RNA sequence: UCGGGGCAUUGGCACACCCGUGCGAAAGCCGGGGUCGCAAAGUUCCCGGUCUAACGCCGCCCUGCCCUGCAGUGCGGCCACGGCAGCGGGGCCGCACUG
Dot-bracket structure: ...........((...((((.((....))))))...))...(((.((((((....((((...............))))...)))..)))))).......

The record is a 99-nucleotide RNA from Pseudaquabacterium pictum, which matches "c-di-GMP-I riboswitch aptamer" in Rfam.
The organism belongs to Pseudaquabacterium, within Bacteria.